[Rfam]
RNA: 6S / SsrS RNA
Organism: Diplocloster agilis
RNA sequence: UAAUUCCUGAAAUGUUCGACAAUCCUGCAAUUUUGAACCUACAUUUUCUUUUAUGGGAUUCCUAUAUUGCCCGUUCUGAUGUCAGGCCGUCAUUACGCAGCGGAAGGCAGAUGACGGGUUGCGGUCGCCCACCUAGCUGUGGCUAGGAGUCAAAAUAGCAGGAAACGGCAUUUUGGGGUAACA
Numbered sequence: 001u002a003a004u005u006c007c008u009g010a011a012a013u014g015u016u017c018g019a020c021a022a023u024c025c026u027g028c029a030a031u032u033u034u035g036a037a038c039c040u041a042c043a044u045u046u047u048c049u050u051u052u053a054u055g056g057g058a059u060u061c062c063u064a065u066a067u068u069g070c071c072c073g074u075u076c077u078g079a080u081g082u083c084a085g086g087c088c089g090u091c092a093u094u095a096c097g098c099a100g101c102g103g104a105a106g107g108c109a110g111a112u113g114a115c116g117g118g119u120u121g122c123g124g125u126c127g128c129c130c131a132c133c134u135a136g137c138u139g140u141g142g143c144u145a146g147g148a149g150u151c152a153a154a155a156u157a158g159c160a161g162g163a164a165a166c167g168g169c170a171u172u173u174u175g176g177g178g179u180a181a182c183a
Stems, first nucleotide, its partner, number of pairs: 005178011017167002032155002034152003038147002055130003061124002066120001069119005075114002082107002087103004